[Rfam]
RNA: Alphaproteobacterial ar15
Organism: Affinirhizobium straminoryzae
RNA sequence: AGCUGGUGCGUCCUGGCGACAUCCCCUCGUUGCCCUGCGCCGGCUGUUCCCCUCUGGAGGUUUUUUAACCUUCACACUUCAGGCCUCGGGCAUUCCGGGGCCUUUUUU
Numbered sequence: 001a002g003c004u005g006g007u008g009c010g011u012c013c014u015g016g017c018g019a020c021a022u023c024c025c026c027u028c029g030u031u032g033c034c035c036u037g038c039g040c041c042g043g044c045u046g047u048u049c050c051c052c053u054c055u056g057g058a059g060g061u062u063u064u065u066u067a068a069c070c071u072u073c074a075c076a077c078u079u080c081a082g083g084c085c086u087c088g089g090g091c092a093u094u095c096c097g098g099g100g101c102c103u104u105u106u107u108u
Stems, first nucleotide, its partner, number of pairs: 001045005007039003015035001016033002055074007081103007089096002